A member of the RNA family "Purine riboswitch aptamer" from Niallia circulans, 99 nucleotides long. The match comes from Rfam's covariance-model search (64 bits). A reference for the family is Mandal et al. (2003), "Riboswitches Control Fundamental Biochemical Pathways in Bacillus subtilis and Other Bacteria", Cell. Rfam describes the family as follows. Riboswitches are metabolite binding domains within certain messenger RNAs that serve as precision sensors for their corresponding targets.
[Rfam]
Nucleotides: 099
Stems, first nucleotide, its partner, number of pairs: 018085008029048007058074005
Number, partner (000 for none) and nucleotide at each position: 001000g002000c003000u004000g005000c006000u007000a008000u009000u010000g011000c012000g013000c014000c015000u016000u017000u018085u019084u020083u021082u022081c023080g024079u025078a026000u027000a028000u029048c030047c031046u032045u033044a034043a035042u036000a037000a038000u039000u040000g041000g042035g043034u044033u045032a046031a047030g048029g049000g050000u051000c052000u053000c054000u055000a056000c057000u058074g059073g060072a061071a062070a063000c064000c065000g066000u067000a068000a069000a070062u071061u072060u073059c074058u075000u076000g077000c078025u079024a080023c081022g082021a083020a084019a085018a086000a087000u088000a089000u090000g091000c092000u093000u094000u095000g096000a097000a098000c099000u